[Rfam]
Rfam assigns this 55-nucleotide sequence from Jiella endophytica to the family "Xanthine riboswitch aptamer (NMT1 RNA)". Lineage of the source: Bacteria > Pseudomonadati > Hyphomicrobiales > Aurantimonadaceae > Jiella.

RNA sequence: CCCGGGAGUAGAAGCAGUCAGCGCUCGAUCGUCGGCGCCGGUCAUUGCUCCUUCG
Dot-bracket structure: ....((((((....(...[.(((((.(.....)))))).)]....))))))....
Numbered sequence: 001c002c003c004g005g006g007a008g009u010a011g012a013a014g015c016a017g018u019c020a021g022c023g024c025u026c027g028a029u030c031g032u033c034g035g036c037g038c039c040g041g042u043c044a045u046u047g048c049u050c051c052u053u054c055g
Stems, first nucleotide, its partner, number of pairs: 005051006015040001019041001021038005027033001